[Rfam]
RNA sequence: AAAGGAACAAUAACCAAUUUCUUAUUCUAUCAAGAGGGUUGGUUAUUGCUCCUUUAUUU
Numbered sequence: 001a002a003a004g005g006a007a008c009a010a011u012a013a014c015c016a017a018u019u020u021c022u023u024a025u026u027c028u029a030u031c032a033a034g035a036g037g038g039u040u041g042g043u044u045a046u047u048g049c050u051c052c053u054u055u056a057u058u059u
Base pairs, nucleotide, nucleotide: 001055002054003053004052005051006050008048009047010046011045012044013043014042019036020035021034022033023032
The record is a 59-nucleotide RNA sequence from Psidium guajava, which matches "Plastid-psbA-3 3UTR RNA" in Rfam. About the family: Plastid psbA-3 is a non-coding RNA (ncRNA) present in plastids. It was identified in inverted repeat sequences in the 3 prime untranslate region (3UTR) of photosystem II quinone-binding protein (psbA). It is one of the family's seed sequences. Its Rfam clan is "Plastid-psbA 3UTR RNA clan".